[Rfam]
RNA sequence: AUCGGCAUCACUGUCGAUGCGCUCGAAAUAGCCGUGAUGUUAAGUCGCCUAGCCUUUGACCACGGAUGUCUUGCCAAUGGCAGAAAAAUGGAAGGAAAGGUCGGUGCGAAUUCGCGCCGACUUUUUUGUCG
Numbered sequence: 001a002u003c004g005g006c007a008u009c010a011c012u013g014u015c016g017a018u019g020c021g022c023u024c025g026a027a028a029u030a031g032c033c034g035u036g037a038u039g040u041u042a043a044g045u046c047g048c049c050u051a052g053c054c055u056u057u058g059a060c061c062a063c064g065g066a067u068g069u070c071u072u073g074c075c076a077a078u079g080g081c082a083g084a085a086a087a088a089u090g091g092a093a094g095g096a097a098a099g100g101u102c103g104g105u106g107c108g109a110a111u112u113c114g115c116g117c118c119g120a121c122u123u124u125u126u127u128g129u130c131g
Stems, first nucleotide, its partner, number of pairs: 003034004007029002016024002039089003052081003057076002061073002091130002094127011106115003